Shown here is a 123-nucleotide RNA sequence from Dendrobium nobile, a member of the family "U11 spliceosomal RNA".
RNA sequence: UAAAAGGGGUGGCUAUGUAUGCCACGCACAUCUUUUAAUUGAUGGGUGUUGUAUGGUUAUCAAGACAUAUGGCUGACAUAAGUUAUGGAUGCUAUAGGGUUGGCUUGCUCGGCUAACCCUUUU
Dot-bracket structure: .......((((((.......))))(((.((((........)))).)))(((((((..........))))))))...)..................((((((((.((....))))))))))...
Clan: U1 clan. It is annotated as a spliceosomal small nuclear RNA. For this family Rfam cites "Additional low-abundance human small nuclear ribonucleoproteins: U11, U12, etc" (Montzka and Steitz, Proc Natl Acad Sci U S A, 1988). A search with the family's covariance model found it, with a score of 54 bits.